About this RNA:
Small nucleolar RNA MBII-202: an 84-nucleotide sequence from Gadus morhua. Rfam links the family to the GO terms RNA processing and nucleolus. It is annotated as a C/D-box small nucleolar RNA. For this family Rfam cites "RNomics: an experimental approach that identifies 201 candidates for novel, small, non-messenger RNAs in mouse" (Huttenhofer et al., EMBO J, 2001).
[Rfam]
RNA sequence: UGAUGACAAAUCUCCGGAAUCUCUGUACUACUUUGAUGAAAAUCUUUUGAACCUUUUAUCUGAUGACUGCCUGUUUAUGUCAAC
Number, nucleotide and partner (000 for none) at each position: 001u000002g084003a000004u082005g081006a080007c079008a078009a000010a000011u000012c000013u000014c000015c000016g000017g000018a000019a000020u000021c000022u000023c000024u000025g000026u000027a000028c000029u000030a000031c000032u000033u000034u000035g000036a000037u000038g000039a000040a000041a000042a000043u000044c000045u000046u000047u000048u000049g000050a000051a000052c000053c000054u000055u000056u000057u000058a000059u000060c000061u000062g000063a000064u000065g000066a000067c000068u000069g000070c000071c000072u000073g000074u000075u000076u000077a000078u008079g007080u006081c005082a004083a000084c002